[Rfam]
RNA: SAH (S-adenosyl-L-homocysteine) riboswitch aptamer
Nucleotides: 077
Base pairs, nucleotide, nucleotide: 002046003045004044005043006042007041008040021033022032023031024030
Number, partner (000 for none) and nucleotide at each position: 001000c002046u003045c004044g005043c006042c007041g008040a009000g010000g011000g012000g013000c014000g015000c016000u017000g018000c019000a020000g021033c022032a023031g024030a025000a026000a027000u028000c029000c030024u031023c032022u033021g034000c035000c036000a037000g038000g039000c040008u041007c042006g043005g044004c045003g046002g047000g048000a049000u050000u051000g052000c053000c054000u055000a056000a057000c058000g059000g060000c061000a062000a063000c064000g065000g066000c067000g068000c069000c070000c071000u072000u073000c074000c075000a076000c077000u